[Rfam]
RNA sequence: ACCUACCCGGCGCGCUGAGCGCAGCCGGGUGACAGAACACAUCGCGCCCCGGAAGAAAAUAGGCGCAUUAGGGCGUU
Number, nucleotide and partner (000 for none) at each position: 001a000002c000003c000004u031005a030006c029007c028008c027009g026010g025011c024012g022013c021014g020015c019016u000017g000018a000019g015020c014021g013022c012023a000024g011025c010026c009027g008028g007029g006030u005031g004032a000033c000034a000035g000036a000037a000038c000039a000040c000041a000042u000043c000044g066045c065046g064047c063048c062049c000050c000051g000052g000053a000054a000055g000056a000057a000058a000059a000060u000061a000062g048063g047064c046065g045066c044067a000068u000069u000070a000071g000072g000073g000074c000075g000076u000077u000
nrdJ RNA: a 77-nucleotide RNA sequence from Streptomyces cinnamoneus.
The source organism's lineage runs through Bacteria, Bacillati, Actinomycetota, Kitasatosporales and Streptomyces.
By type it is a small RNA.